[Rfam]
RNA: Plastid-psbA-4 3UTR RNA
Organism: Japonolirion osense
RNA sequence: AAGGAGCAAUACCAAACCUCUUGUUCUAGCAAGAGGUUUGGUAUUGCUCCCUU
Numbered sequence: 001a002a003g004g005a006g007c008a009a010u011a012c013c014a015a016a017c018c019u020c021u022u023g024u025u026c027u028a029g030c031a032a033g034a035g036g037u038u039u040g041g042u043a044u045u046g047c048u049c050c051c052u053u
Stems, first nucleotide, its partner, number of pairs: 001052001003050009015038002018035006